Small nucleolar RNA sn668: a 64-nucleotide RNA sequence from Toxocara canis. The family's RNA type in Rfam is C/D-box small nucleolar RNA. For this family Rfam cites "Location of 2(')-O-methyl nucleotides in 26S rRNA and methylation guide snoRNAs in Caenorhabditis elegans" (Higa et al., Biochem Biophys Res Commun, 2002). The base pairs follow the family's consensus structure, which was predicted with WAR. A search with the family's covariance model found it, with a score of 43 bits. Rfam 15.1 lists 27 matches to the family in 25 species. Rfam links the family to the GO terms RNA processing and nucleolus. The source organism's lineage runs through Eukaryota, Metazoa, Ecdysozoa, Toxocaridae and Toxocara.
RNA sequence: GGUCGAUGAUGUUGUUUCAAGACGGGAAUGAUAUGCUAUUGAUUAUAUGCGAGUUACUGAGGCC
Numbered sequence: 001g002g003u004c005g006a007u008g009a010u011g012u013u014g015u016u017u018c019a020a021g022a023c024g025g026g027a028a029u030g031a032u033a034u035g036c037u038a039u040u041g042a043u044u045a046u047a048u049g050c051g052a053g054u055u056a057c058u059g060a061g062g063c064c
Base pairs, nucleotide, nucleotide: 001064002063003062004061